[Rfam]
RNA sequence: AGAACGUCAUGAUGGUGGGAUUGAUAAAUCCCUAGUCUAGUUUGAAUGUGGAAUAAAUUCCACG
Numbered sequence: 001a002g003a004a005c006g007u008c009a010u011g012a013u014g015g016u017g018g019g020a021u022u023g024a025u026a027a028a029u030c031c032c033u034a035g036u037c038u039a040g041u042u043u044g045a046a047u048g049u050g051g052a053a054u055a056a057a058u059u060c061c062a063c064g
Stems, first nucleotide, its partner, number of pairs: 002043004011037003017032006047064006

The record is a 64-nucleotide sequence from Lentilactobacillus hilgardii, which matches "L17 ribosomal protein downstream element" in Rfam. It scores 42 bits against the family's covariance model.